[Rfam]
RNA sequence: GGCAGAGUAGAUUUUUGCGCGUUAAGUGCCAAGAGGACGGGAAGUUGCCUUUUGGACGAAAAACACCCAGUGUUUGCGGUGCAGAUUUCGCAUUCCGCUGCC
Numbered sequence: 001g002g003c004a005g006a007g008u009a010g011a012u013u014u015u016u017g018c019g020c021g022u023u024a025a026g027u028g029c030c031a032a033g034a035g036g037a038c039g040g041g042a043a044g045u046u047g048c049c050u051u052u053u054g055g056a057c058g059a060a061a062a063a064c065a066c067c068c069a070g071u072g073u074u075u076g077c078g079g080u081g082c083a084g085a086u087u088u089c090g091c092a093u094u095c096c097g098c099u100g101c102c
Stems, first nucleotide, its partner, number of pairs: 001102005010089002014085006020078003026057002029055008040095003044091001061075004
Dot-bracket structure: (((((....((..(((((((((...((.((((((((...[[[.[...))))))))))...((((.......))))))).))))))..)).].]]]..)))))
Shown here is a 102-nucleotide RNA from Ruminiclostridium hungatei, a member of the family "THF (Tetrahydrofolate) riboswitch aptamer". It scores 90 bits against the family's covariance model. The source organism's lineage runs through Bacteria, Bacillati, Bacillota, Eubacteriales and Ruminiclostridium. Rfam links the family to the GO term tetrahydrofolate metabolic process. Rfam's curators write: Tetrahydrofolate (THF) riboswitch was first reported for Ames et al. as an RNA motif in 5' untranslated (5'-UTR)regions of folate transport and biosynthesis genes in Firmicutes genomes.